RNA: mir-216 microRNA precursor family
Organism: Pomacea canaliculata
RNA sequence: UGUUUGUCUAAUCUCAGCUGGUAAUUCUGAGUGGAGUUCUGCACACCUCAAGUUACUAGCCGAGAUUACAUAAAUA
Numbered sequence: 001u002g003u004u005u006g007u008c009u010a011a012u013c014u015c016a017g018c019u020g021g022u023a024a025u026u027c028u029g030a031g032u033g034g035a036g037u038u039c040u041g042c043a044c045a046c047c048u049c050a051a052g053u054u055a056c057u058a059g060c061c062g063a064g065a066u067u068a069c070a071u072a073a074a075u076a
Stems, first nucleotide, its partner, number of pairs: 003074005009068007017060001021057001023054002026052001028050004